This 71-nucleotide RNA from Pomatostomus ruficeps belongs to the Rfam family "mir-34 microRNA precursor family". About the family: Human mir-34a was discovered computationally and later experimentally verified. The mature sequence is excised from the 5' arm of the hairpin. Rfam links the family to the GO terms miRNA-mediated post-transcriptional gene silencing and RISC complex. It scores 68 bits against the family's covariance model.
RNA sequence: GGUUCGCAGGCAGUGUAGUUAGCUGAUUGUAUUUGUAACCGCACAAUCACUAACGGCACUGCCAUCGAAAC
Numbered sequence: 001g002g003u004u005c006g007c008a009g010g011c012a013g014u015g016u017a018g019u020u021a022g023c024u025g026a027u028u029g030u031a032u033u034u035g036u037a038a039c040c041g042c043a044c045a046a047u048c049a050c051u052a053a054c055g056g057c058a059c060u061g062c063c064a065u066c067g068a069a070a071c
Stems, first nucleotide, its partner, number of pairs: 003069004009063002012060005018054005024049007